[Rfam]
RNA sequence: GGGCAUGUUGGGAGCCGUAACCUAUGGGCGGUAGCGUG
Numbered sequence: 001g002g003g004c005a006u007g008u009u010g011g012g013a014g015c016c017g018u019a020a021c022c023u024a025u026g027g028g029c030g031g032u033a034g035c036g037u038g
Stems, first nucleotide, its partner, number of pairs: 009024004
RNA: JUMPstart RNA